This 56-nucleotide RNA from Mariprofundus erugo belongs to the Rfam family "Zeta-pan RNA". By type it is a small RNA. Taxonomically the source falls in Mariprofundus (Bacteria, Pseudomonadota, Candidatius Mariprofundia, Mariprofundaceae). Pairs were carried over by alignment from the consensus structure, which is taken from published work.

RNA sequence: CAUCCUGAAAGACGGUACCGCAGACAAAGCGGACCGAAGCAGAAAGGAAUACGAUG
Numbered sequence: 001c002a003u004c005c006u007g008a009a010a011g012a013c014g015g016u017a018c019c020g021c022a023g024a025c026a027a028a029g030c031g032g033a034c035c036g037a038a039g040c041a042g043a044a045a046g047g048a049a050u051a052c053g054a055u056g
Stems, first nucleotide, its partner, number of pairs: 013036004018032003